[Rfam]
Nucleotides: 069
Stems, first nucleotide, its partner, number of pairs: 001068004006063002010022004024040003028036001045061005
Number, partner (000 for none) and nucleotide at each position: 001068g002067a003066g004065a005000c006063g007062u008000u009000a010022g011021u012020a013019a014000a015000c016000c017000a018000a019013u020012u021011a022010c023000a024040u025039a026038g027000a028036c029000c030000u031000g032000u033000c034000a035000a036028g037000a038026c039025u040024a041000a042000a043000u044000c045061a046060c047059a048058g049057g050000u051000g052000c053000a054000a055000a056000c057049c058048c059047u060046g061045u062007a063006c064000a065004u066003c067002u068001c069000a
About this RNA:
A member of the RNA family "tRNA", 69 nucleotides long. It is annotated as a transfer RNA. The base pairs follow the family's consensus structure, which is taken from published work. Rfam's curators write: Transfer RNA (tRNA) molecules are approximately 80 nucleotides in length.